[Rfam]
RNA sequence: UGGUCGUGUCGGUAGGCAAGGCUACCGCAGGGAUAUGGGUUGCUACCGCAAAGCAGUGGAGACACUGCAAGCAGGUCAACAGUUUCUGUCGAUUCAAGGCACUGACUAAUGCAGCUCCACGGCCCGGCGAUGCUAAAGCUCAAACGAUGACGAUUCAG
Numbered sequence: 001u002g003g004u005c006g007u008g009u010c011g012g013u014a015g016g017c018a019a020g021g022c023u024a025c026c027g028c029a030g031g032g033a034u035a036u037g038g039g040u041u042g043c044u045a046c047c048g049c050a051a052a053g054c055a056g057u058g059g060a061g062a063c064a065c066u067g068c069a070a071g072c073a074g075g076u077c078a079a080c081a082g083u084u085u086c087u088g089u090c091g092a093u094u095c096a097a098g099g100c101a102c103u104g105a106c107u108a109a110u111g112c113a114g115c116u117c118c119a120c121g122g123c124c125c126g127g128c129g130a131u132g133c134u135a136a137a138g139c140u141c142a143a144a145c146g147a148u149g150a151c152g153a154u155u156c157a158g
Stems, first nucleotide, its partner, number of pairs: 007152004011145001013097001015140003020134003026129003030125003039115005046074001048072002055066004082106003088100003
Annotation: M-box riboswitch aptamer (ykoK leader): a 158-nucleotide sequence from Bifidobacterium mongoliense. For this family Rfam cites "Magnesium-sensing riboswitches in bacteria" (Ramesh and Winkler, RNA Biol, 2010). NCBI's taxonomy places the organism under Bacteria, Bacillati, Bifidobacteriales, Bifidobacteriaceae, Bifidobacterium mongoliense. Rfam describes the family as follows. M-box riboswitch, also know as ykoK leader is described as a metaloregulatory RNA that sense divalent metals and function as a genetic control element of genes related to divalent metal transport in bacteria.